The family of this 165-nucleotide RNA sequence from Trema andersonii is "MIR396 microRNA precursor family". The base pairs follow the family's consensus structure, which was predicted with WAR. The source organism's lineage runs through Eukaryota, Spermatophyta, Pentapetalae, Cannabaceae and Trema.

RNA sequence: CUUUGUAUUCUUCCACAGCUUUCUUGAACUGCAUCUAAGACAAGAAAGAGAAGGAAAAAAAAACAUGUGAGAAAGAGUAGUUAUUUUUGAAACUAUAUACUAUAUACUCUUUCUCGCCUUAUUAAUUGAAUUGCGGUUCAAUAAAGCUGUGGGAAGAUACCAAUA
Numbered sequence: 001c002u003u004u005g006u007a008u009u010c011u012u013c014c015a016c017a018g019c020u021u022u023c024u025u026g027a028a029c030u031g032c033a034u035c036u037a038a039g040a041c042a043a044g045a046a047a048g049a050g051a052a053g054g055a056a057a058a059a060a061a062a063a064c065a066u067g068u069g070a071g072a073a074a075g076a077g078u079a080g081u082u083a084u085u086u087u088u089g090a091a092a093c094u095a096u097a098u099a100c101u102a103u104a105u106a107c108u109c110u111u112u113c114u115c116g117c118c119u120u121a122u123u124a125a126u127u128g129a130a131u132u133g134c135g136g137u138u139c140a141a142u143a144a145a146g147c148u149g150u151g152g153g154a155a156g157a158u159a160c161c162a163a164u165a
Stems, first nucleotide, its partner, number of pairs: 003162001005160003013152003017148006024141004029136005